[Rfam]
Rfam assigns this 145-nucleotide RNA sequence from Patulibacter medicamentivorans to the family "c-di-AMP riboswitch aptamer (ydaO/yuaA leader)". The organism belongs to Patulibacter, within Bacteria.
RNA sequence: CCCGCAACGCUGAGUUUCCGGAAUCACGCCUGCCGCCGGCGUCCGGAAAGCGGGGGACCCAAGUAUUGGGGCGAAUCGGCCCAGGCCGUAGCGCACUCCAGCGCGAGUCCGACAGCUAACCCCGUAAGCGCUCUCGGAGGACUUA
Numbered sequence: 001c002c003c004g005c006a007a008c009g010c011u012g013a014g015u016u017u018c019c020g021g022a023a024u025c026a027c028g029c030c031u032g033c034c035g036c037c038g039g040c041g042u043c044c045g046g047a048a049a050g051c052g053g054g055g056g057a058c059c060c061a062a063g064u065a066u067u068g069g070g071g072c073g074a075a076u077c078g079g080c081c082c083a084g085g086c087c088g089u090a091g092c093g094c095a096c097u098c099c100a101g102c103g104c105g106a107g108u109c110c111g112a113c114a115g116c117u118a119a120c121c122c123c124g125u126a127a128g129c130g131c132u133c134u135c136g137g138a139g140g141a142c143u144u145a
Base pairs, nucleotide, nucleotide: 008130009129010128011127015049016048017047018046019045020044021043022042050125051124052123053122054121055120060068061067069110070109071108077088078087079086080085091104092103093102094101